[Rfam]
RNA sequence: GCUCAGAAGACGAUGCUCGGCUUAAUUGCUCAUCAUCUUCUACCUCCCUGUUGGACUUAGGCCGGGCCUCGUGCCCGGCUUUUUUU
Numbered sequence: 001g002c003u004c005a006g007a008a009g010a011c012g013a014u015g016c017u018c019g020g021c022u023u024a025a026u027u028g029c030u031c032a033u034c035a036u037c038u039u040c041u042a043c044c045u046c047c048c049u050g051u052u053g054g055a056c057u058u059a060g061g062c063c064g065g066g067c068c069u070c071g072u073g074c075c076c077g078g079c080u081u082u083u084u085u086u
Stems, first nucleotide, its partner, number of pairs: 005041006060080008

Description
This 86-nucleotide sequence from Paracoccus liaowanqingii belongs to the Rfam family "Singlet oxygen resistance RNA X". Taxonomically the source falls in Paracoccus (Bacteria, Alphaproteobacteria, Rhodobacterales, Paracoccaceae). The family's RNA type in Rfam is small RNA. The pairing is the family consensus, mapped onto this sequence. Rfam's curators write: SorX (RSs2461)like SorY is a singlet oxygen induced sRNA that counteracts oxidative stress by targeting mRNA for a transporter in Rhodobacter. It also has an impact on resistance against organic hydroperoxides. It targets SD sequence of potA mRNA via an aSD sequence.